[Rfam]
RNA sequence: UCCUUCGUGGUGAAAUGGUAAACACGUGUGAUUCAAAAUCACAUGCAUAAGCUUGCCGGUUCGAGUCCGGUCGAAGGUA
Dot-bracket structure: .((((((..(((..........))).(((((.......)))))...........(((((.......)))))))))))..
Numbered sequence: 001u002c003c004u005u006c007g008u009g010g011u012g013a014a015a016u017g018g019u020a021a022a023c024a025c026g027u028g029u030g031a032u033u034c035a036a037a038a039u040c041a042c043a044u045g046c047a048u049a050a051g052c053u054u055g056c057c058g059g060u061u062c063g064a065g066u067c068c069g070g071u072c073g074a075a076g077g078u079a
Stems, first nucleotide, its partner, number of pairs: 002077006010025003027043005055071005
Rfam assigns this 79-nucleotide sequence from Euglena gracilis to the family "tRNA". It is one of the family's seed sequences. The family's consensus secondary structure is taken from published work. It is annotated as a transfer RNA. The organism belongs to Euglena, within Eukaryota.